Rfam assigns this 69-nucleotide sequence from Zoogloea oleivorans to the family "int-alpA RNA". Rfam describes the family as follows. Acidobacteria (1 example), Planctomycetes (1 example), Proteobacteria. It is annotated as a small RNA.
RNA sequence: ACCGCGCCUAGGUCGGCCAACCGAAAAGCGGGAACCUUCACCCGCCUGGCGCGGUGCCUCUUUUGAAGG
Numbered sequence: 001a002c003c004g005c006g007c008c009u010a011g012g013u014c015g016g017c018c019a020a021c022c023g024a025a026a027a028g029c030g031g032g033a034a035c036c037u038u039c040a041c042c043c044g045c046c047u048g049g050c051g052c053g054g055u056g057c058c059u060c061u062u063u064u065g066a067a068g069g
Stems, first nucleotide, its partner, number of pairs: 001055008011022003028045005035069006